[Rfam]
RNA sequence: UACCCCAAGGAGCGUUGCAGCGGGCCGCAGCCCGUCAGGCUUGGGGCGCGUUCUUCUCUUUCGCAACGACGCUCACCUGUC
Numbered sequence: 001u002a003c004c005c006c007a008a009g010g011a012g013c014g015u016u017g018c019a020g021c022g023g024g025c026c027g028c029a030g031c032c033c034g035u036c037a038g039g040c041u042u043g044g045g046g047c048g049c050g051u052u053c054u055u056c057u058c059u060u061u062c063g064c065a066a067c068g069a070c071g072c073u074c075a076c077c078u079g080u081c
Base pairs, nucleotide, nucleotide: 003046004045005044006043007042008041021034022033023032024031025030
Dot-bracket structure: ..((((((............(((((....)))))......))))))...................................